[Rfam]
RNA sequence: AUCUCCCGUGCCUACUGAGCUGAUUAGCAGUUGAUACCAGAAACACUGGCUCAGUUCAGCAGGAACAGGAG
Numbered sequence: 001a002u003c004u005c006c007c008g009u010g011c012c013u014a015c016u017g018a019g020c021u022g023a024u025u026a027g028c029a030g031u032u033g034a035u036a037c038c039a040g041a042a043a044c045a046c047u048g049g050c051u052c053a054g055u056u057c058a059g060c061a062g063g064a065a066c067a068g069g070a071g
Base pairs, nucleotide, nucleotide: 003071004070005069006068008066009065011063012062013061015059016058017057018056019055020054021053022052023051028048029047030046031045